[Rfam]
RNA sequence: UUUACUUUUCUAAUUGUAGGACAUCCAUUCAGCCAGCUUUCAGGUGGAUCUGAAUGAUGGUUGUUCUGUAUUUUAGUUGUAAU
Number, nucleotide and partner (000 for none) at each position: 001u000002u082003u081004a080005c079006u000007u000008u000009u000010c076011u075012a074013a073014u000015u070016g069017u068018a067019g066020g065021a064022c063023a062024u000025c000026c056027a055028u054029u053030c052031a051032g050033c000034c047035a000036g045037c044038u043039u000040u000041c000042a000043g038044g037045u036046g000047g034048a000049u000050c032051u031052g030053a029054a028055u027056g026057a000058u000059g000060g000061u000062u023063g022064u021065u020066c019067u018068g017069u016070a015071u000072u000073u013074u012075a011076g010077u000078u000079g005080u004081a003082a002083u000
Rfam assigns this 83-nucleotide RNA from Myotis davidii to the family "mir-9236 microRNA precursor family". Gene Ontology terms of the family: RISC complex and miRNA-mediated post-transcriptional gene silencing. The base pairs follow the family's consensus structure, which was predicted with RNAalifold. It scores 100 bits against the family's covariance model.